The record is an 89-nucleotide RNA from Pediococcus pentosaceus, which matches "THF (Tetrahydrofolate) riboswitch aptamer" in Rfam. NCBI's taxonomy places the organism under Bacteria, Bacillati, Bacilli, Lactobacillaceae, Pediococcus pentosaceus. The base pairs follow the family's consensus structure, which is taken from published work. Gene Ontology term of the family: tetrahydrofolate metabolic process. Tetrahydrofolate (THF) riboswitch was first reported for Ames et al. as an RNA motif in 5' untranslated (5'-UTR)regions of folate transport and biosynthesis genes in Firmicutes genomes.
RNA sequence: UGGAGUAGGAAUCGAUGCGUUAAGUGCCAACAAGACGGAGAGUUGCUUGUUGGACGAAUGCUUGUCAGCGAUAUCGAUUCCGCAUCUCG
Numbered sequence: 001u002g003g004a005g006u007a008g009g010a011a012u013c014g015a016u017g018c019g020u021u022a023a024g025u026g027c028c029a030a031c032a033a034g035a036c037g038g039a040g041a042g043u044u045g046c047u048u049g050u051u052g053g054a055c056g057a058a059u060g061c062u063u064g065u066c067a068g069c070g071a072u073a074u075c076g077a078u079u080c081c082g083c084a085u086c087u088c089g
Base pairs, nucleotide, nucleotide: 001089002088003087008081009080010079011078012077013076014075015074016073017072018070019069020068024055025054027053028052029051030050031049032048033047034046040085042083059067060066
For this family Rfam cites "A eubacterial riboswitch class that senses the coenzyme tetrahydrofolate" (Ames et al., Chem Biol, 2010).